Nucleotides: 073
Base pairs, nucleotide, nucleotide: 001071002070003069004068005067009060010059011058013056022055023054024053030048031047032046034045035044
Number, partner (000 for none) and nucleotide at each position: 001071a002070c003069u004068g005067u006000g007000g008000a009060g010059u011058g012000g013056a014000c015000a016000u017000g018000g019000a020000u021000c022055u023054a024053c025000g026000a027000g028000u029000a030048g031047a032046u033000a034045u035044g036000a037000u038000u039000u040000c041000g042000g043000u044035c045034a046032a047031u048030c049000a050000a051000a052000a053024g054023u055022a056013u057000a058011c059010a060009c061000a062000a063000g064000g065000a066000a067005g068004c069003a070002g071001u072000a073000a

The family of this 73-nucleotide sequence is "RAGATH-18 RNA". From the family's description: Actinobacteria, Firmicutes, Fusobacteria, Thermotogae (1 example). By type it is a small RNA.